[Rfam]
RNA sequence: CUCCCCGCUCUCAUGAUGAGCCCAUGUGCCUCUGAGCUGCCGUGAUUCAGGCUUCAAAGUAAACGCUCUGAAGAAAUGGAGCCGAGC
Numbered sequence: 001c002u003c004c005c006c007g008c009u010c011u012c013a014u015g016a017u018g019a020g021c022c023c024a025u026g027u028g029c030c031u032c033u034g035a036g037c038u039g040c041c042g043u044g045a046u047u048c049a050g051g052c053u054u055c056a057a058a059g060u061a062a063a064c065g066c067u068c069u070g071a072a073g074a075a076a077u078g079g080a081g082c083c084g085a086g087c
Base pairs, nucleotide, nucleotide: 003086005084007082008081009080010079
Small nucleolar RNA SNORD105: an 87-nucleotide RNA sequence from Echinops telfairi. The family has 15 seed sequences and 146 matches in Rfam 15.1. The base pairs follow the family's consensus structure. For this family Rfam cites "Identification of 13 novel human modification guide RNAs" (Vitali et al., Nucleic Acids Res, 2003). By type it is a C/D-box small nucleolar RNA. From the family's description: U105 belongs to the C/D family of snoRNAs. It is encoded in an intron of the Suppressor of SWI4 1 homolog (Ssf-1) (Peter Pan homolog) gene. and is predicted to guide 2'O-ribose methylation of residue U799 of the small 18S rRNA subunit. Rfam's curators put it in the seed alignment. Its Rfam clan is "SNORD105 clan".